Overview:
MIR5269 microRNA precursor family: an 80-nucleotide RNA from Medicago truncatula. The match comes from Rfam's covariance-model search (69 bits). Lineage of the source: Eukaryota > Tracheophyta > Gunneridae > Fabales > Medicago.
RNA sequence: UUGGGUAAAAUCAUUGUGGGGCUCACACUUUGGCAAUGGGUUAUACUUAAAGUGGUGGGACCCACAUUGAUUUCACCCAA
Numbered sequence: 001u002u003g004g005g006u007a008a009a010a011u012c013a014u015u016g017u018g019g020g021g022c023u024c025a026c027a028c029u030u031u032g033g034c035a036a037u038g039g040g041u042u043a044u045a046c047u048u049a050a051a052g053u054g055g056u057g058g059g060a061c062c063c064a065c066a067u068u069g070a071u072u073u074c075a076c077c078c079a080a
Stems, first nucleotide, its partner, number of pairs: 001080006008073006015066004023058003026054007